[Rfam]
RNA sequence: AUUAUCAUGUGAUGAAAUUUGGAAUAAUCUUAGGACACCUUCCUACACAGUUUGCCAAAGCUGUGGAUGAGAACAAAAAUCCAUUCUGAUGAUGAU
Numbered sequence: 001a002u003u004a005u006c007a008u009g010u011g012a013u014g015a016a017a018u019u020u021g022g023a024a025u026a027a028u029c030u031u032a033g034g035a036c037a038c039c040u041u042c043c044u045a046c047a048c049a050g051u052u053u054g055c056c057a058a059a060g061c062u063g064u065g066g067a068u069g070a071g072a073a074c075a076a077a078a079a080u081c082c083a084u085u086c087u088g089a090u091g092a093u094g095a096u
Stems, first nucleotide, its partner, number of pairs: 001096007